A member of the RNA family "mir-30 microRNA precursor family" from Scleropages formosus, 77 nucleotides long. Rfam links the family to the GO terms gene silencing by miRNA and RISC complex. Rfam 15.1 lists 3,879 matches to the family in 647 species. This family consists of the mammalian microRNA (miRNA) precursor mir-30a. A reference for the family is Mourelatos et al. (2002), "miRNPs: a novel class of ribonucleoproteins containing numerous microRNAs", Genes Dev.
RNA sequence: CCAGGGGGUGUAAACAUCCUACACUCUCAGCUGUAGCGGUCCAGUUGGGCUGGGAGCGGGGUGUUUGCUCUCCCUGG
Numbered sequence: 001c002c003a004g005g006g007g008g009u010g011u012a013a014a015c016a017u018c019c020u021a022c023a024c025u026c027u028c029a030g031c032u033g034u035a036g037c038g039g040u041c042c043a044g045u046u047g048g049g050c051u052g053g054g055a056g057c058g059g060g061g062u063g064u065u066u067g068c069u070c071u072c073c074c075u076g077g
Base pairs, nucleotide, nucleotide: 002076003075004074005073006072008070010068011067012066013065014064015063016062017061018060019059020058024056025055026054027053028052029051030050031049032048